[Rfam]
tRNA: a 75-nucleotide sequence from Methanococcus vannielii. The organism belongs to Methanococcus, within Archaea. On this family, see Hou, Trends Biochem Sci 1993: "The tertiary structure of tRNA and the development of the genetic code". Rfam classes the family as a transfer RNA. The family is grouped with related families in Rfam's "tRNA clan".
RNA sequence: GGGCCUGUGGGGUAGCCUGGUCCAUCCUUUGGGAUUUGGGAUCCUGAGACCCCAGUUCAAAUCUGGGCAGGCCCA
Numbered sequence: 001g002g003g004c005c006u007g008u009g010g011g012g013u014a015g016c017c018u019g020g021u022c023c024a025u026c027c028u029u030u031g032g033g034a035u036u037u038g039g040g041a042u043c044c045u046g047a048g049a050c051c052c053c054a055g056u057u058c059a060a061a062u063c064u065g066g067g068c069a070g071g072c073c074c075a
Stems, first nucleotide, its partner, number of pairs: 001074007010028003030046005051067005